Source information:
The family of this 109-nucleotide RNA sequence from Erwinia tasmaniensis is "RprA RNA". The match comes from Rfam's covariance-model search (78 bits). The literature on the family includes a 2001 paper in Mol Microbiol by Majdalani et al., "Regulation of RpoS by a novel small RNA: the characterization of RprA". Translational regulation of the stationary phase sigma factor RpoS is mediated by the formation of a double-stranded RNA stem-loop structure in the upstream region of the rpoS messenger RNA, occluding the translation initiation site.

RNA sequence: AAGGUUUGAAAUCACCUGUCUGAUUUUGAAUAAGCGUAUUUCCCCAGAGUGAACUAAAGAAUUGCUGUGUGUAGUCUUUGCCCAUCCCCUGUGAUGGGCUUUUUUUUGC
Numbered sequence: 001a002a003g004g005u006u007u008g009a010a011a012u013c014a015c016c017u018g019u020c021u022g023a024u025u026u027u028g029a030a031u032a033a034g035c036g037u038a039u040u041u042c043c044c045c046a047g048a049g050u051g052a053a054c055u056a057a058a059g060a061a062u063u064g065c066u067g068u069g070u071g072u073a074g075u076c077u078u079u080g081c082c083c084a085u086c087c088c089c090u091g092u093g094a095u096g097g098g099c100u101u102u103u104u105u106u107u108g109c
Stems, first nucleotide, its partner, number of pairs: 003021002036044001063071003080099007